[Rfam]
RNA: mir-15 microRNA precursor family
Organism: Danio rerio
RNA sequence: CCUUCCUCGCUUUAGCAGCACGUAAAUAUUGGUGUGUUAUAGUCAAGGCCAACCCCAAUAUUAUGUGUGCUGCUUCAGUAAGGCAGG
Numbered sequence: 001c002c003u004u005c006c007u008c009g010c011u012u013u014a015g016c017a018g019c020a021c022g023u024a025a026a027u028a029u030u031g032g033u034g035u036g037u038u039a040u041a042g043u044c045a046a047g048g049c050c051a052a053c054c055c056c057a058a059u060a061u062u063a064u065g066u067g068u069g070c071u072g073c074u075u076c077a078g079u080a081a082g083g084c085a086g087g
Stems, first nucleotide, its partner, number of pairs: 001087003005083001014074009025062008034053002